[Rfam]
RNA sequence: AAUUGUGUGAGGAGUGAGAAGAAAGACUAAGCCUUUGAGGUCGAAACAUGGCAAGACUCUCAGAGGCUUUUCCAU
Numbered sequence: 001a002a003u004u005g006u007g008u009g010a011g012g013a014g015u016g017a018g019a020a021g022a023a024a025g026a027c028u029a030a031g032c033c034u035u036u037g038a039g040g041u042c043g044a045a046a047c048a049u050g051g052c053a054a055g056a057c058u059c060u061c062a063g064a065g066g067c068u069u070u071u072c073c074a075u
Stems, first nucleotide, its partner, number of pairs: 015074001023071003032066002037061003040057003
Shown here is a 75-nucleotide RNA from Gloeothece citriformis, a member of the family "Cyano-1 RNA". Pairs were carried over by alignment from the consensus structure, which is taken from published work. Rfam 15.1 lists 283 matches to the family in 194 species.